[Rfam]
RNA sequence: UUUAAAUCACUAGUUUUCACUCAUAUAAUUGCAGGGAUAGGGCCUGCGAGUUUCUACCGAGCUCCGUAAAAGCUUCGACUAUGAGCAGCGAUAUCAUUGUG
Numbered sequence: 001u002u003u004a005a006a007u008c009a010c011u012a013g014u015u016u017u018c019a020c021u022c023a024u025a026u027a028a029u030u031g032c033a034g035g036g037a038u039a040g041g042g043c044c045u046g047c048g049a050g051u052u053u054c055u056a057c058c059g060a061g062c063u064c065c066g067u068a069a070a071a072g073c074u075u076c077g078a079c080u081a082u083g084a085g086c087a088g089c090g091a092u093a094u095c096a097u098u099g100u101g
Stems, first nucleotide, its partner, number of pairs: 020085006029049007058077004063072001
RNA: Purine riboswitch aptamer